[Rfam]
RNA sequence: AGGGAGAAUCCGUAAAGCUCAGGAGGGAUAGCGCCAGGGGCUUACGGGAGGGAGUACCGAGUUCCCUCCGCUGCAAUGGCGCUAUCUAUCCUGAGUUUGAUGGCUUCUCCUU
Numbered sequence: 001a002g003g004g005a006g007a008a009u010c011c012g013u014a015a016a017g018c019u020c021a022g023g024a025g026g027g028a029u030a031g032c033g034c035c036a037g038g039g040g041c042u043u044a045c046g047g048g049a050g051g052g053a054g055u056a057c058c059g060a061g062u063u064c065c066c067u068c069c070g071c072u073g074c075a076a077u078g079g080c081g082c083u084a085u086c087u088a089u090c091c092u093g094a095g096u097u098u099g100a101u102g103g104c105u106u107c108u109c110c111u112u
Base pairs, nucleotide, nucleotide: 010103016097017096018095019094020093021092022091023090024089026087027086028085029084030083031082032081033080034079035078
RNA: MIR390 microRNA precursor family